[Rfam]
Nucleotides: 346
Stems, first nucleotide, its partner, number of pairs: 007022006060098005071086004104127006113346007152223003170186005188215004195209005256313006265276004278302006314335007
Number, partner (000 for none) and nucleotide at each position: 001000c002000g003000u004000c005000c006000g007022g008021u009020u010019u011018u012017c013000g014000g015000c016000g017012g018011a019010a020009a021008a022007u023000g024000u025000u026000u027000u028000u029000a030000a031000g032000g033000g034000c035000u036000a037000g038000a039000u040000a041000g042000a043000a044000u045000a046000a047000a048000u049000a050000c051000a052000u053000u054000u055000a056000a057000g058000a059000u060098g061097a062096u063095a064094c065000a066000c067000u068000u069000c070000a071086g072085a073084c074083c075000u076000g077000a078000a079000a080000g081000a082000c083074g084073g085072u086071u087000g088000a089000c090000a091000a092000a093000a094064g095063u096062a097061u098060c099000c100000g101000c102000a103000c104127c105126c106125u107124g108123c109122c110000a111000a112000c113346g114345g115344g116343u117342u118341a119340c120000u121000a122109g123108g124107c125106a126105g127104g128000a129000g130000g131000g132000c133000g134000a135000a136000a137000g138000u139000g140000g141000g142000u143000a144000u145000a146000a147000g148000u149000g150000a151000g152223g153222u154221g155000c156000u157000a158000g159000a160000c161000c162000c163000c164000c165000a166000a167000a168000a169000a170186g171185u172184c173183c174182c175000c176000c177000c178000g179000a180000a181000a182174g183173g184172g185171a186170c187000a188215c189214a190213u191212c192000u193000a194000c195209g196208g197207a198206c199205u200000a201000u202000u203000a204000u205199a206198g207197u208196c209195u210000a211000u212191g213190a214189u215188g216000a217000a218000c219000g220000a221154c222153a223152c224000c225000a226000a227000g228000a229000g230000u231000u232000g233000g234000c235000u236000g237000a238000u239000a240000g241000c242000g243000a244000c245000g246000u247000g248000a249000u250000g251000a252000g253000g254000a255000c256313a257312c258311g259310a260309a261308c262000a263000a264000g265276a266275c267274c268273c269000g270000a271000a272000a273268g274267g275266g276265u277000a278302g279301c280300a281299g282298g283297u284000a285000g286000g287000g288000c289000a290000c291000g292000c293000a294000g295000a296000c297283g298282c299281c300280u301279g302278c303000a304000a305000a306000a307000a308261g309260u310259u311258c312257g313256u314335u315334c316333a317332a318331a319330a320329c321000u322000u323000g324000a325000a326000a327000u328000a329320g330319u331318u332317u333316u334315g335314a336000a337000g338000u339000u340119g341118u342117a343116a344115c345114c346113c